[Rfam]
RNA sequence: UGGUCCUGGACACUAUGGAAGACUAGUGAUUUUGUUGUUGUAAAUUCAGCACCCAGACAACAAGUCAUAGUCUACCUCAGUGUCCAGAACU
Numbered sequence: 001u002g003g004u005c006c007u008g009g010a011c012a013c014u015a016u017g018g019a020a021g022a023c024u025a026g027u028g029a030u031u032u033u034g035u036u037g038u039u040g041u042a043a044a045u046u047c048a049g050c051a052c053c054c055a056g057a058c059a060a061c062a063a064g065u066c067a068u069a070g071u072c073u074a075c076c077u078c079a080g081u082g083u084c085c086a087g088a089a090c091u
Stems, first nucleotide, its partner, number of pairs: 002090001004088002008085002011082004017076002020073005026068007034061006

Shown here is a 91-nucleotide RNA sequence from Oncorhynchus kisutch, a member of the family "mir-7 microRNA precursor family". The family's consensus secondary structure was predicted with PFOLD. Lineage of the source: Eukaryota > Teleostei > Euteleosteomorpha > Protacanthopterygii > Oncorhynchus.